[Rfam]
Source information: SAM riboswitch aptamer (S box leader): a 110-nucleotide sequence from Bacillus yapensis.
RNA sequence: AACUUAUCCAGAGCGACUGAGGGACAUGGCCCUAUGAAGUCCGGCAACCCCCUAAUGUAAGGGAAGGUGCCAAUUCCUGCAGAAUGAAACUUCAUUCUGAAAGAUAAGUC
Dot-bracket structure: .(((((((....(.(((...(((....[[)))......))))((((.((((((......))))..))))))...(]]..((((((........))))))..)))))))).
Numbered sequence: 001a002a003c004u005u006a007u008c009c010a011g012a013g014c015g016a017c018u019g020a021g022g023g024a025c026a027u028g029g030c031c032c033u034a035u036g037a038a039g040u041c042c043g044g045c046a047a048c049c050c051c052c053u054a055a056u057g058u059a060a061g062g063g064a065a066g067g068u069g070c071c072a073a074u075u076c077c078u079g080c081a082g083a084a085u086g087a088a089a090c091u092u093c094a095u096u097c098u099g100a101a102a103g104a105u106a107a108g109u110c
Stems, first nucleotide, its partner, number of pairs: 002109007013042001015041003021032003028077002043071004048067002050063004075102001080099006